Background: The record is a 248-nucleotide RNA sequence from Anas platyrhynchos, which matches "Small nucleolar RNA SNORD17" in Rfam. A reference for the family is Huttenhofer et al. (2001), "RNomics: an experimental approach that identifies 201 candidates for novel, small, non-messenger RNAs in mouse", EMBO J. From the family's description: The snoRNA HBI-43 belongs to the C/D family of snoRNAs, guiding 2'O-ribose methylation at position U3797 of the 28S rRNA. Pseudouridylation in position U3797 is predicted to be guided by the H/ACA snoRNA ACA48.
RNA sequence: GUGAGGUGAUGAUGAAGUUUAUCCAUUCUCUGAGUGCAGUGGCGCUGCCCUCCUGCAACACCCUGACUCCUGUUCUAGGGUUUGGGUGCUGUGCAGCCUCCAGACACCCUCCAGUCUGCCAGUGUCCUACUGGGGGCUGCUGCGGUGUGUGGCUGGCUGCCUGCAGGAGCAAAGCAGUGCUGGCAGGGUCAGAGCCUCUCUCUGGAGGGGCUCUGUCCCCACUAAGACGAGGGAUGAUGUCUGAUUGC
Numbered sequence: 001g002u003g004a005g006g007u008g009a010u011g012a013u014g015a016a017g018u019u020u021a022u023c024c025a026u027u028c029u030c031u032g033a034g035u036g037c038a039g040u041g042g043c044g045c046u047g048c049c050c051u052c053c054u055g056c057a058a059c060a061c062c063c064u065g066a067c068u069c070c071u072g073u074u075c076u077a078g079g080g081u082u083u084g085g086g087u088g089c090u091g092u093g094c095a096g097c098c099u100c101c102a103g104a105c106a107c108c109c110u111c112c113a114g115u116c117u118g119c120c121a122g123u124g125u126c127c128u129a130c131u132g133g134g135g136g137c138u139g140c141u142g143c144g145g146u147g148u149g150u151g152g153c154u155g156g157c158u159g160c161c162u163g164c165a166g167g168a169g170c171a172a173a174g175c176a177g178u179g180c181u182g183g184c185a186g187g188g189u190c191a192g193a194g195c196c197u198c199u200c201u202c203u204g205g206a207g208g209g210g211c212u213c214u215g216u217c218c219c220c221a222c223u224a225a226g227a228c229g230a231g232g233g234a235u236g237a238u239g240u241c242u243g244a245u246u247g248c
Stems, first nucleotide, its partner, number of pairs: 010247004017240002020237001023233002026231003030226002034222002039184002042181001043179006051168007059088005065082001068080004093160006106148002108145001112139006119133006186219003190215004195210005
The family has 19 seed sequences and 1,015 matches in Rfam 15.1. It is annotated as a C/D-box small nucleolar RNA. The organism belongs to Anas, within Eukaryota. Gene Ontology terms of the family: nucleolus and RNA processing.